[Rfam]
RNA sequence: ACUCAACACUAAUUCUUUAAAAAGGGUGAGUUUAAGUUGUAAAAGCGAGCUGUCUUUGAGCAGAUACUUGAUCAGCUUGGUAUCCCUAAACUUGUUUUAAGGAGUUU
Numbered sequence: 001a002c003u004c005a006a007c008a009c010u011a012a013u014u015c016u017u018u019a020a021a022a023a024g025g026g027u028g029a030g031u032u033u034a035a036g037u038u039g040u041a042a043a044a045g046c047g048a049g050c051u052g053u054c055u056u057u058g059a060g061c062a063g064a065u066a067c068u069u070g071a072u073c074a075g076c077u078u079g080g081u082a083u084c085c086c087u088a089a090a091c092u093u094g095u096u097u098u099a100a101g102g103a104g105u106u107u
Stems, first nucleotide, its partner, number of pairs: 023087004034078005043069003050063004
RNA: 6S-Flavo RNA